[Rfam]
RNA sequence: GGGUUGGCUGGCAGAGGAAGGGAAGGGUCCGGGGUCGGCUGAGCAUGCCCUCAGGUUGCUCACUGUUCUUCCCUAGAAUGUCAGGUGAUG
Dot-bracket structure: ..((((.((((((.....(((((((((....((((.(.(((((......))))).).))))....)))))))))....)))))).)))).
A member of the RNA family "mir-1178 microRNA precursor family" from Pan troglodytes, 90 nucleotides long. The organism belongs to Pan, within Eukaryota. Its family is annotated with RISC complex and miRNA-mediated post-transcriptional gene silencing in the Gene Ontology. Rfam's curators put it in the seed alignment.